Rfam assigns this 52-nucleotide sequence to the family "nhaA-I RNA". Pairs were carried over by alignment from the consensus structure, which is taken from published work. The sequence is in the family's curated seed alignment. Rfam's curators write: Acidobacteria, Alphaproteobacteria, Betaproteobacteria and Gammaproteobacteria, Verrucomicrobia, cand. division NC10.

RNA sequence: GGGUGCGGCGGGUCGGUCCGCCGCAGGAAUCCGGUUGGUCGGGCCGCCAGCC
Numbered sequence: 001g002g003g004u005g006c007g008g009c010g011g012g013u014c015g016g017u018c019c020g021c022c023g024c025a026g027g028a029a030u031c032c033g034g035u036u037g038g039u040c041g042g043g044c045c046g047c048c049a050g051c052c
Base pairs, nucleotide, nucleotide: 005024006023007022008021009020010019011018012017033052034051035050036049037048038047039046